The record is a 62-nucleotide sequence from Pelagibacterales bacterium SAG-MED35, which matches "pntA sRNA" in Rfam. The family's RNA type in Rfam is small RNA. On this family, see Meyer et al., BMC Genomics 2009: "Identification of candidate structured RNAs in the marine organism 'Candidatus Pelagibacter ubique'".
RNA sequence: UUUUAUGGACAACGAAAACCAUAAAAGUACCUGGAACAACUUUACAAGAUUUGUGUUAUGGG
Numbered sequence: 001u002u003u004u005a006u007g008g009a010c011a012a013c014g015a016a017a018a019c020c021a022u023a024a025a026a027g028u029a030c031c032u033g034g035a036a037c038a039a040c041u042u043u044a045c046a047a048g049a050u051u052u053g054u055g056u057u058a059u060g061g062g
Base pairs, nucleotide, nucleotide: 001026002025003024004023005022006021007020008019030062031061032060033059034057035056036054037053038052039051